A member of the RNA family "t44 RNA" from Marisediminitalea lipolytica, 106 nucleotides long. The literature on the family includes a 2002 paper in Nucleic Acids Res by Tjaden et al., "Transcriptome analysis of Escherichia coli using high-density oligonucleotide probe arrays". The family's consensus secondary structure was predicted with LocARNA.
[Rfam]
RNA sequence: ACAUUACUUAAAUUAAAACACACAUACACUGUGACUGCGUAUCGGGGUGUCUGCGUUGUUAACUUAACAACAGUGGAUCGAUACAAAGGGUGUAUGGAGGCCUAAC
Numbered sequence: 001a002c003a004u005u006a007c008u009u010a011a012a013u014u015a016a017a018a019c020a021c022a023c024a025u026a027c028a029c030u031g032u033g034a035c036u037g038c039g040u041a042u043c044g045g046g047g048u049g050u051c052u053g054c055g056u057u058g059u060u061a062a063c064u065u066a067a068c069a070a071c072a073g074u075g076g077a078u079c080g081a082u083a084c085a086a087a088g089g090g091u092g093u094a095u096g097g098a099g100g101c102c103u104a105a106c
Base pairs, nucleotide, nucleotide: 023096024095025094026093027092028091029090030089036087039084040083041082042081043080044079049078050077051076052075053074

A search with the family's covariance model found it, with a score of 54 bits.